[Rfam]
RNA sequence: CGCCUGCAUCAGGAGUUGGGCCGACGCCCAACGCCAACCGGCCUUCCCGGGCACGGUGGCGCCUCCGCAAGGGGGGAUGCGGCCAUUCCGGCAAACAUUCGGGAAGCG
Numbered sequence: 001c002g003c004c005u006g007c008a009u010c011a012g013g014a015g016u017u018g019g020g021c022c023g024a025c026g027c028c029c030a031a032c033g034c035c036a037a038c039c040g041g042c043c044u045u046c047c048c049g050g051g052c053a054c055g056g057u058g059g060c061g062c063c064u065c066c067g068c069a070a071g072g073g074g075g076g077a078u079g080c081g082g083c084c085a086u087u088c089c090g091g092c093a094a095a096c097a098u099u100c101g102g103g104a105a106g107c108g
Stems, first nucleotide, its partner, number of pairs: 006080005015032001017030005033060003038056003041052003045104005082092003
SAM-I/IV (S-adenosyl methionine) riboswitch aptamer: a 108-nucleotide RNA from Falsiroseomonas bella. Taxonomically the source falls in Falsiroseomonas (Bacteria, Pseudomonadati, Alphaproteobacteria, Roseomonadaceae).